[Rfam]
RNA sequence: UGGAGGCGUCGCGACUGGCGCAGUCAAAGGUGGAAGCAACCACCGGGAAGCGACACGGAUCCCGUACGAAAACACCGUGCGCCUGGGUGGCGGGG
Numbered sequence: 001u002g003g004a005g006g007c008g009u010c011g012c013g014a015c016u017g018g019c020g021c022a023g024u025c026a027a028a029g030g031u032g033g034a035a036g037c038a039a040c041c042a043c044c045g046g047g048a049a050g051c052g053a054c055a056c057g058g059a060u061c062c063c064g065u066a067c068g069a070a071a072a073c074a075c076c077g078u079g080c081g082c083c084u085g086g087g088u089g090g091c092g093g094g095g
Stems, first nucleotide, its partner, number of pairs: 006056001008054005015047002017083005030043004073089004
This 95-nucleotide RNA from Cryptosporangium arvum belongs to the Rfam family "ZMP/ZTP riboswitch aptamer (pfl RNA motif)".
Pairs were carried over by alignment from the consensus structure, which is taken from published work.
Its family is annotated with one-carbon metabolic process and regulation of purine nucleotide biosynthetic process in the Gene Ontology.